[Rfam]
RNA sequence: UAAUAUUUACGCGGGAGCUUGAGGAAUCAGGCUGAGAGGAUAACUAAUCUGUUAUCGACCGUUGAACCUGAACUGGAUAAUGCCAGCGGAGGGAUGAGUGACACUUCAUGUU
Numbered sequence: 001u002a003a004u005a006u007u008u009a010c011g012c013g014g015g016a017g018c019u020u021g022a023g024g025a026a027u028c029a030g031g032c033u034g035a036g037a038g039g040a041u042a043a044c045u046a047a048u049c050u051g052u053u054a055u056c057g058a059c060c061g062u063u064g065a066a067c068c069u070g071a072a073c074u075g076g077a078u079a080a081u082g083c084c085a086g087c088g089g090a091g092g093g094a095u096g097a098g099u100g101a102c103a104c105u106u107c108a109u110g111u112u
Stems, first nucleotide, its partner, number of pairs: 006100001008098001010096001011062004017032005039056005067092003073086004

Rfam assigns this 112-nucleotide RNA from Aneurinibacillus danicus to the family "TPP riboswitch aptamer (THI element)". The match comes from Rfam's covariance-model search (58 bits). Pairs were carried over by alignment from the consensus structure, which is taken from published work.